[Rfam]
RNA sequence: UCCGUUCAUCUCUACCGGCUUUGCGAACUACCUGAUUGUUAGAUCCCCGGCAGGGACGGAAGUAGGGAGUUGUCCCGAAGGAACGCGGC
Numbered sequence: 001u002c003c004g005u006u007c008a009u010c011u012c013u014a015c016c017g018g019c020u021u022u023g024c025g026a027a028c029u030a031c032c033u034g035a036u037u038g039u040u041a042g043a044u045c046c047c048c049g050g051c052a053g054g055g056a057c058g059g060a061a062g063u064a065g066g067g068a069g070u071u072g073u074c075c076c077g078a079a080g081g082a083a084c085g086c087g088g089c
Base pairs, nucleotide, nucleotide: 003085004084005083006082007081009056010055011054012053013052059086065076066075067074